[Rfam]
RNA sequence: CGGCCGCAGAGUUUGAUCAUGGCUCGGGAUGAACGCUAGCGACAGGCUUAACACAUGCAAGUCGAGGGGCAGCACAGGUAGCAAUACCGGGUGGCGACCGGCGCACGGGUGAGUAACGCGUAUGCAACUUACCUAUCAGAGGGGGAUAACCCGGCGAAAGUCGGACUAAUACCGCAUGAAGCAGGGGCCCCGCAUGGGGAUAUUUGCUAAAGAUUCAUCGCUGAUAGAUAGGCAUGCGUUCCAUUAGGCAGUUGGCGGGGUAACGGCCCACCAAACCGACGAUGGAUAGGGGUUCUGAGAGGAAGGUCCCCCACAUUGGUACUGAGACACGGACCAAACUCCUACGGGAGGCAGCAGUGAGGAAUAUUGGUCAAUGGGCGUAAGCCUGAACCAGCCAAGUCGCGUGAGGGAUGAAGGUUCUAUGGAUCGUAAACCUCUUUUAUAAGGGAAUAAAGUGCGGGACGUGUCCCGUUUUGUAUGUACCUUAUGAAUAAGGAUCGGCUAACUCCGUGCCAGCAGCCGCGGUAAUACGGAGGAUCCGAGCGUUAUCCGGAUUUAUUG
Numbered sequence: 001c002g003g004c005c006g007c008a009g010a011g012u013u014u015g016a017u018c019a020u021g022g023c024u025c026g027g028g029a030u031g032a033a034c035g036c037u038a039g040c041g042a043c044a045g046g047c048u049u050a051a052c053a054c055a056u057g058c059a060a061g062u063c064g065a066g067g068g069g070c071a072g073c074a075c076a077g078g079u080a081g082c083a084a085u086a087c088c089g090g091g092u093g094g095c096g097a098c099c100g101g102c103g104c105a106c107g108g109g110u111g112a113g114u115a116a117c118g119c120g121u122a123u124g125c126a127a128c129u130u131a132c133c134u135a136u137c138a139g140a141g142g143g144g145g146a147u148a149a150c151c152c153g154g155c156g157a158a159a160g161u162c163g164g165a166c167u168a169a170u171a172c173c174g175c176a177u178g179a180a181g182c183a184g185g186g187g188c189c190c191c192g193c194a195u196g197g198g199g200a201u202a203u204u205u206g207c208u209a210a211a212g213a214u215u216c217a218u219c220g221c222u223g224a225u226a227g228a229u230a231g232g233c234a235u236g237c238g239u240u241c242c243a244u245u246a247g248g249c250a251g252u253u254g255g256c257g258g259g260g261u262a263a264c265g266g267c268c269c270a271c272c273a274a275a276c277c278g279a280c281g282a283u284g285g286a287u288a289g290g291g292g293u294u295c296u297g298a299g300a301g302g303a304a305g306g307u308c309c310c311c312c313a314c315a316u317u318g319g320u321a322c323u324g325a326g327a328c329a330c331g332g333a334c335c336a337a338a339c340u341c342c343u344a345c346g347g348g349a350g351g352c353a354g355c356a357g358u359g360a361g362g363a364a365u366a367u368u369g370g371u372c373a374a375u376g377g378g379c380g381u382a383a384g385c386c387u388g389a390a391c392c393a394g395c396c397a398a399g400u401c402g403c404g405u406g407a408g409g410g411a412u413g414a415a416g417g418u419u420c421u422a423u424g425g426a427u428c429g430u431a432a433a434c435c436u437c438u439u440u441u442a443u444a445a446g447g448g449a450a451u452a453a454a455g456u457g458c459g460g461g462a463c464g465u466g467u468c469c470c471g472u473u474u475u476g477u478a479u480g481u482a483c484c485u486u487a488u489g490a491a492u493a494a495g496g497a498u499c500g501g502c503u504a505a506c507u508c509c510g511u512g513c514c515a516g517c518a519g520c521c522g523c524g525g526u527a528a529u530a531c532g533g534a535g536g537a538u539c540c541g542a543g544c545g546u547u548a549u550c551c552g553g554a555u556u557u558a559u560u561g
Base pairs, nucleotide, nucleotide: 009025010024011023012022013021027551028550029549030548032547033546034545035544036543037542039403040402041401042400043399045396046395047361052359053358054357056356057355058354061102062101063100066099067098069095070094075090077088078087079086080085109314110313111312118239119238120237121236122235123234124233125232128231129230133227134226135225136224137223138222139221141175143173144172151164152163153162154161155160181207182206183205184204185203187201189198190197191196212219213218240286241285242284247277248276252274253273254272255271257269258268259267289311290310291309292308293304294303295302296301316337317336318335319334320333339350340349341348342347367393369392370391371390375388376387377386378385379384406437407436408435409434416428417427418426419425442488443487444486445485446484447483451478457472458471459470495540496539497538498537499536506535507534508533509532510531516523517522
RNA: Bacterial small subunit ribosomal RNA, nucleotides 1 to 561
Organism: bacterium enrichment culture clone Ecwsrb007